[Rfam]
RNA: Glycine riboswitch aptamer
Organism: Clostridium acidisoli
RNA sequence: GGACGAAACUCUGGAGAGACUCAAAAGAGCACCGAAGGGGAAAACUAAUUUUUAGUGAAACUCUCAGGUAAAAGAACAGAGACAUUUUU
Numbered sequence: 001g002g003a004c005g006a007a008a009c010u011c012u013g014g015a016g017a018g019a020c021u022c023a024a025a026a027g028a029g030c031a032c033c034g035a036a037g038g039g040g041a042a043a044a045c046u047a048a049u050u051u052u053u054a055g056u057g058a059a060a061c062u063c064u065c066a067g068g069u070a071a072a073a074g075a076a077c078a079g080a081g082a083c084a085u086u087u088u089u
Base pairs, nucleotide, nucleotide: 009081010080011079012078013077020029021028022027031069032068033067034065035064038063039062040061044056045055